skipping-rope RNA: an 87-nucleotide RNA.
RNA sequence: AGAAUUAAAGGACGGAACAGGCAGCCGUCACCCUGUAUGUAUCGCAUACGGUUAGGAGAUGUGGGAAUAGUCACCCUGCUUAAUUCU
Numbered sequence: 001a002g003a004a005u006u007a008a009a010g011g012a013c014g015g016a017a018c019a020g021g022c023a024g025c026c027g028u029c030a031c032c033c034u035g036u037a038u039g040u041a042u043c044g045c046a047u048a049c050g051g052u053u054a055g056g057a058g059a060u061g062u063g064g065g066a067a068u069a070g071u072c073a074c075c076c077u078g079c080u081u082a083a084u085u086c087u
Stems, first nucleotide, its partner, number of pairs: 001087008011029005020072003031056001033051008061079005